Description: Rfam assigns this 68-nucleotide RNA from Branchiostoma floridae to the family "bZIP non canonical Hac1/Xbp1 intron". bZIP intron RNA is a non-canonical intron that was first reported in HAC1 gene in yeast and XBP1 gene in Metazoa. Rfam 15.1 lists 1,325 matches to the family in 1,320 species. The source organism's lineage runs through Eukaryota, Metazoa, Eumetazoa, Cephalochordata and Branchiostoma. For this family Rfam cites "Identification of an Exceptionally Long Intron in the HAC1 Gene of Candida parapsilosis" (Iracane et al., mSphere, 2018). The base pairs follow the family's consensus structure, which was predicted with RNAfold.
RNA sequence: GAUCCAGGUCCUCUGAAUCCGCAGCAUUCAGACAAUGUGCACCUCUGCAGCAGGGGCAGAUCUGGAUC
Numbered sequence: 001g002a003u004c005c006a007g008g009u010c011c012u013c014u015g016a017a018u019c020c021g022c023a024g025c026a027u028u029c030a031g032a033c034a035a036u037g038u039g040c041a042c043c044u045c046u047g048c049a050g051c052a053g054g055g056g057c058a059g060a061u062c063u064g065g066a067u068c
Base pairs, nucleotide, nucleotide: 001068002067003066004065006063007062008061009060010059013031014030015029016028017027018026040056042054043053044052